[Rfam]
Annotation:
Rfam assigns this 98-nucleotide RNA from Propionigenium maris to the family "Purine riboswitch aptamer". The base pairs follow the family's consensus structure, which is taken from published work. It scores 57 bits against the family's covariance model. A reference for the family is Batey et al. (2004), "Structure of a natural guanine-responsive riboswitch complexed with the metabolite hypoxanthine", Nature.
RNA sequence: GAUUUCCCAAAUUAAAUAUGUCAUAUAAGUUGCAGAUAGGGUGCAGCGUCUCUACGACUAACCGUAAAUUAGUCUCUAUGAAUUUUGUAAAGAUACUU
Numbered sequence: 001g002a003u004u005u006c007c008c009a010a011a012u013u014a015a016a017u018a019u020g021u022c023a024u025a026u027a028a029g030u031u032g033c034a035g036a037u038a039g040g041g042u043g044c045a046g047c048g049u050c051u052c053u054a055c056g057a058c059u060a061a062c063c064g065u066a067a068a069u070u071a072g073u074c075u076c077u078a079u080g081a082a083u084u085u086u087g088u089a090a091a092g093a094u095a096c097u098u
Stems, first nucleotide, its partner, number of pairs: 018084001021081005029047006056074006